[Rfam]
RNA sequence: AAGGUUCCGGUUCACGCCGGAGCGAUUCGCCCUCAGGUGGCGGUUCGUGACGAUGGCGACCCGGCGACC
Numbered sequence: 001a002a003g004g005u006u007c008c009g010g011u012u013c014a015c016g017c018c019g020g021a022g023c024g025a026u027u028c029g030c031c032c033u034c035a036g037g038u039g040g041c042g043g044u045u046c047g048u049g050a051c052g053a054u055g056g057c058g059a060c061c062c063g064g065c066g067a068c069c
Base pairs, nucleotide, nucleotide: 003069004068005067007064008063009062010061015058016057017056018055019054022051